Shown here is a 135-nucleotide RNA from Pan troglodytes, a member of the family "Small nucleolar RNA SNORA48". The snoRNA ACA 48 has been identified to guide pseudouridylation of the residue U3797 in the 28S rRNA subunit. The base pairs follow the family's consensus structure, which was predicted with RNAalifold. Its Rfam clan is "SNORA48 clan". Taxonomically the source falls in Pan (Eukaryota, Bilateria, Catarrhini, Hominidae).
RNA sequence: UGCCCCUGACCUGGGAAGAGAGGGGCCUGGCUGGUGGUAUCCAUGUCAUACCAGCUAGAAAUGAAGAAACUGCUUGCUCAUCCCAGCCUGGCUCCUGGUCUAUGCCCAUGCCUGGUUUAUGCCUUGGACAUAUCA
Numbered sequence: 001u002g003c004c005c006c007u008g009a010c011c012u013g014g015g016a017a018g019a020g021a022g023g024g025g026c027c028u029g030g031c032u033g034g035u036g037g038u039a040u041c042c043a044u045g046u047c048a049u050a051c052c053a054g055c056u057a058g059a060a061a062u063g064a065a066g067a068a069a070c071u072g073c074u075u076g077c078u079c080a081u082c083c084c085a086g087c088c089u090g091g092c093u094c095c096u097g098g099u100c101u102a103u104g105c106c107c108a109u110g111c112c113u114g115g116u117u118u119a120u121g122c123c124u125u126g127g128a129c130a131u132a133u134c135a
Stems, first nucleotide, its partner, number of pairs: 001063002006058003011054004018047002022041002025038003075130002078127003090123003096119003100115003104111002
Dot-bracket structure: ((...(((..((((...((..((.(((........))).))....))...)))).)))...))...........((.(((.........(((...(((.(((.((....)).))).))).))).))).)).....
By type it is an H/ACA-box small nucleolar RNA.